The family of this 76-nucleotide sequence from Listeria welshimeri is "L17 ribosomal protein downstream element".
It is annotated as a cis-regulatory element.

[Rfam]
RNA sequence: GGAGUGUCAUGAUAUGGAGACUUCGUGUUUCCUUGUCUAGCUCUGUGUUUCCUAGUCUAUUUAACCGUAGACUAGG
Number, nucleotide and partner (000 for none) at each position: 001g000002g043003a042004g041005u040006g000007u000008c000009a000010u000011g037012a036013u035014a000015u000016g032017g031018a030019g029020a028021c027022u000023u000024c000025g000026u000027g021028u020029u019030u018031c017032c016033u000034u000035g013036u012037c011038u000039a000040g005041c004042u003043c002044u000045g000046u000047g000048u000049u000050u000051c076052c075053u074054a073055g072056u071057c070058u069059a068060u000061u000062u000063a000064a000065c000066c000067g000068u059069a058070g057071a056072c055073u054074a053075g052076g051